Rfam assigns this 212-nucleotide sequence from Aphanocapsa feldmannii to the family "permuted transfer-messenger RNA". Lineage of the source: Bacteria > Cyanobacteriota > Microcystaceae > Aphanocapsa > Aphanocapsa feldmannii.
[Rfam]
RNA sequence: GGUGACCUGCACCGGUGUCUCGGACAGCGGUUCGAUUCCGCUCAGCUCCACUGUGUUGCCCGGUCCCGCCUCCGGUGGGACCUCUUCCCGGGGCUGCAAUGGUUUCGACGGGGCAUGAGGAGGGUGACUGAAACCUGCUCGGUCAGAGCAACUACGUAACAGCGAACAAGAUCGUUCGUUUCUCCCGUCAGGCUGCCCCUGUUGCCGCCUGA
Numbered sequence: 001g002g003u004g005a006c007c008u009g010c011a012c013c014g015g016u017g018u019c020u021c022g023g024a025c026a027g028c029g030g031u032u033c034g035a036u037u038c039c040g041c042u043c044a045g046c047u048c049c050a051c052u053g054u055g056u057u058g059c060c061c062g063g064u065c066c067c068g069c070c071u072c073c074g075g076u077g078g079g080a081c082c083u084c085u086u087c088c089c090g091g092g093g094c095u096g097c098a099a100u101g102g103u104u105u106c107g108a109c110g111g112g113g114c115a116u117g118a119g120g121a122g123g124g125u126g127a128c129u130g131a132a133a134c135c136u137g138c139u140c141g142g143u144c145a146g147a148g149c150a151a152c153u154a155c156g157u158a159a160c161a162g163c164g165a166a167c168a169a170g171a172u173c174g175u176u177c178g179u180u181u182c183u184c185c186c187g188u189c190a191g192g193c194u195g196c197c198c199c200u201g202u203u204g205c206c207g208c209c210u211g212a
Stems, first nucleotide, its partner, number of pairs: 001129003005125001016115003020111003026042005043096007
Dot-bracket structure: (((.(..........(((.(((...(((((.......)))))(((((((........................................)))))))............))).))).........).)))...................................................................................